[Rfam]
About this RNA:
Shown here is a 109-nucleotide RNA from Neoroseomonas lacus, a member of the family "TPP riboswitch aptamer (THI element)".

RNA sequence: GCGGACACCUUGGGGAGCCUCGUCCGGAGGCUGAGAGGCGGGCUUCACCCGCGACCCAUGGAACCUGAUCCGGUUCGGACCGGUGUAGGGAACGGUGCCACCCGUUCGU
Number, nucleotide and partner (000 for none) at each position: 001g000002c000003g000004g000005a000006c097007a096008c095009c094010u000011u058012g057013g056014g055015g000016a000017g031018c030019c029020u028021c027022g000023u000024c000025c000026g000027g021028a020029g019030g018031c017032u000033g000034a000035g000036a000037g000038g052039c051040g050041g049042g048043c000044u000045u000046c000047a000048c042049c041050c040051g039052c038053g000054a000055c014056c013057c012058a011059u000060g000061g000062a000063a000064c089065c088066u087067g086068a000069u000070c083071c082072g081073g080074u000075u000076c000077g000078g000079a000080c073081c072082g071083g070084u000085g000086u067087a066088g065089g064090g000091a000092a000093c000094g009095g008096u007097g006098c000099c000100a000101c000102c000103c000104g000105u000106u000107c000108g000109u000
The organism belongs to Neoroseomonas, within Bacteria. It scores 67 bits against the family's covariance model.